[Rfam]
RNA sequence: GGAUGUGAGGGCGAUCUGGUUGCGACAUCUGUCACCCCAUUGAUCGCCAGGGUUGAUUCGGCUGAUCUGGCUGGCUAGGCGGGUGUCCCCUUCCUCCCUCACCGCUCCAUGUGCGUCCCUCCCGAAGCUGUGUGCUCGGUCGAAGAGGACGACCAUCCCCGAUAGAGGAGGACCGGUCUUCGGCCAAGGGUAUAUGAGUAGCUGCGCUCCCCUGCUAGAACCUCCAAACAAGCUCUCAAGAAUGCAGUUCAGUGAUUAUUAUUAUUACUUUUUUAGUAUAUAUAGAGUGCUCAAUUAUUAUUAUUAUUUUUUUAAUUUUUGGCUGUGCUGUGUUUUUGUUUAUU
Dot-bracket structure: (((.(((((((.((...((....((((((((((.(((((..(((((((...........))).)))))))..))...)))))))))).)).))..)))))))...))).......((((((((((.((.....))))))(((....(((......))).)))..)))).)).............................(.(....(.(.(((........(.(..(.(((.....................................))).).).)....))).).)....).).................(((.(.(((.....))).).........)))
Numbered sequence: 001g002g003a004u005g006u007g008a009g010g011g012c013g014a015u016c017u018g019g020u021u022g023c024g025a026c027a028u029c030u031g032u033c034a035c036c037c038c039a040u041u042g043a044u045c046g047c048c049a050g051g052g053u054u055g056a057u058u059c060g061g062c063u064g065a066u067c068u069g070g071c072u073g074g075c076u077a078g079g080c081g082g083g084u085g086u087c088c089c090c091u092u093c094c095u096c097c098c099u100c101a102c103c104g105c106u107c108c109a110u111g112u113g114c115g116u117c118c119c120u121c122c123c124g125a126a127g128c129u130g131u132g133u134g135c136u137c138g139g140u141c142g143a144a145g146a147g148g149a150c151g152a153c154c155a156u157c158c159c160c161g162a163u164a165g166a167g168g169a170g171g172a173c174c175g176g177u178c179u180u181c182g183g184c185c186a187a188g189g190g191u192a193u194a195u196g197a198g199u200a201g202c203u204g205c206g207c208u209c210c211c212c213u214g215c216u217a218g219a220a221c222c223u224c225c226a227a228a229c230a231a232g233c234u235c236u237c238a239a240g241a242a243u244g245c246a247g248u249u250c251a252g253u254g255a256u257u258a259u260u261a262u263u264a265u266u267a268c269u270u271u272u273u274u275a276g277u278a279u280a281u282a283u284a285g286a287g288u289g290c291u292c293a294a295u296u297a298u299u300a301u302u303a304u305u306a307u308u309u310u311u312u313u314a315a316u317u318u319u320u321g322g323c324u325g326u327g328c329u330g331u332g333u334u335u336u337u338g339u340u341u342a343u344u
Stems, first nucleotide, its partner, number of pairs: 001108003005102007013093002018090002024087010035074002037070003042067004046062003116171002118168004122139004127135002140162003147158003201296001203294001208289001210287001212285003223278001225276001228274001230272003314344003318332001320330003